[Rfam]
RNA sequence: ACGGAAGGGAUGAGUAUUUCCCCAGAUGAUCGAAUCUGAAAUCACCGAGCGCACUUUCUCUUUCUCGAGAAAUAUCCAAGCCAGGAUAUUCCGAUCCAU
Numbered sequence: 001a002c003g004g005a006a007g008g009g010a011u012g013a014g015u016a017u018u019u020c021c022c023c024a025g026a027u028g029a030u031c032g033a034a035u036c037u038g039a040a041a042u043c044a045c046c047g048a049g050c051g052c053a054c055u056u057u058c059u060c061u062u063u064c065u066c067g068a069g070a071a072a073u074a075u076c077c078a079a080g081c082c083a084g085g086a087u088a089u090u091c092c093g094a095u096c097c098a099u
Stems, first nucleotide, its partner, number of pairs: 001099001003097003
A member of the RNA family "Small nucleolar RNA Z103" from Camellia sinensis, 99 nucleotides long.
Rfam 15.1 lists 2,844 matches to the family in 233 species.
NCBI's taxonomy places the organism under Eukaryota, Streptophytina, Tracheophyta, Euphyllophyta, Camellia.
The family's RNA type in Rfam is C/D-box small nucleolar RNA.
Its family is annotated with RNA processing and nucleolus in the Gene Ontology.
On this family, see Chen et al., Nucleic Acids Res 2003: "The high diversity of snoRNAs in plants: identification and comparative study of 120 snoRNA genes from Oryza sativa".